The family of this 87-nucleotide sequence from Prunella himalayana is "mir-204 microRNA precursor family". The match comes from Rfam's covariance-model search (51 bits). For this family Rfam cites "The developmental miRNA profiles of zebrafish as determined by small RNA cloning" (Chen et al., Genes Dev, 2005). The family has 60 seed sequences and 1,730 matches in Rfam 15.1. Pairs were carried over by alignment from the consensus structure, which was predicted with RNAalifold.
[Rfam]
RNA sequence: CUGCCCCCUGUGAGCCCCCCCUUGUCAUCCUAUGCCUGAGCGUUCCUGGAGGCUGGGACGGCCAAGGGAGGCCCCCCCCCCGCCACA
Numbered sequence: 001c002u003g004c005c006c007c008c009u010g011u012g013a014g015c016c017c018c019c020c021c022u023u024g025u026c027a028u029c030c031u032a033u034g035c036c037u038g039a040g041c042g043u044u045c046c047u048g049g050a051g052g053c054u055g056g057g058a059c060g061g062c063c064a065a066g067g068g069a070g071g072c073c074c075c076c077c078c079c080c081c082g083c084c085a086c087a
Stems, first nucleotide, its partner, number of pairs: 018068003022064001024062002028058005034053004